[Rfam]
RNA sequence: AAGUGGACUAGGUCGGGCGGUUAGGCCCCGCUCACAACCCGCGCUAUGGUCUUUAGCGGGGACCGAAGCCGGGGUGCGUCUGGCCCAACCAGUGCGGGCCCCGCAAGCCAACGUCGAAGCCUCGUCCUACGAGGGCAGCGGUCCGCCGACCGGCGUCUGCAGGGACGUUCGGUCGCGGUUAACCACGGGCAAUCCGUCAGGCACGGAAGUGAGCAGCGGACCCGUGGACAGCUGUCGCCCGUAGGGUCGCGGGGUGGAGGAGGCACGCGGGACUCCCCGUAUUGGACGGGCCAGGCAACUCUCGGGUCCAACC
Numbered sequence: 001a002a003g004u005g006g007a008c009u010a011g012g013u014c015g016g017g018c019g020g021u022u023a024g025g026c027c028c029c030g031c032u033c034a035c036a037a038c039c040c041g042c043g044c045u046a047u048g049g050u051c052u053u054u055a056g057c058g059g060g061g062a063c064c065g066a067a068g069c070c071g072g073g074g075u076g077c078g079u080c081u082g083g084c085c086c087a088a089c090c091a092g093u094g095c096g097g098g099c100c101c102c103g104c105a106a107g108c109c110a111a112c113g114u115c116g117a118a119g120c121c122u123c124g125u126c127c128u129a130c131g132a133g134g135g136c137a138g139c140g141g142u143c144c145g146c147c148g149a150c151c152g153g154c155g156u157c158u159g160c161a162g163g164g165a166c167g168u169u170c171g172g173u174c175g176c177g178g179u180u181a182a183c184c185a186c187g188g189g190c191a192a193u194c195c196g197u198c199a200g201g202c203a204c205g206g207a208a209g210u211g212a213g214c215a216g217c218g219g220a221c222c223c224g225u226g227g228a229c230a231g232c233u234g235u236c237g238c239c240c241g242u243a244g245g246g247u248c249g250c251g252g253g254g255u256g257g258a259g260g261a262g263g264c265a266c267g268c269g270g271g272a273c274u275c276c277c278c279g280u281a282u283u284g285g286a287c288g289g290g291c292c293a294g295g296c297a298a299c300u301c302u303c304g305g306g307u308c309c310a311a312c313c
Stems, first nucleotide, its partner, number of pairs: 004310006011064004015033006038060005070304002072301003078296004082291001084289001089285010100271005107264003112259001114257001119255007126245006133238001134236005140229001141180001143178004148173001150171001152169007183227007193220005202211003